[Rfam]
RNA sequence: UGCUCCUCGUGUUCACUGUUGGCCUUUAUGCAUAGCGAUCAUAAGGCACGCGGUGAAUGCCAAGAGCG
Numbered sequence: 001u002g003c004u005c006c007u008c009g010u011g012u013u014c015a016c017u018g019u020u021g022g023c024c025u026u027u028a029u030g031c032a033u034a035g036c037g038a039u040c041a042u043a044a045g046g047c048a049c050g051c052g053g054u055g056a057a058u059g060c061c062a063a064g065a066g067c068g
Base pairs, nucleotide, nucleotide: 003066004065005064009060010059011058012057013056014055015054016053018051019050023046024045025044027043028042029041030040
RNA: mir-124 microRNA precursor family
Organism: Laodelphax striatellus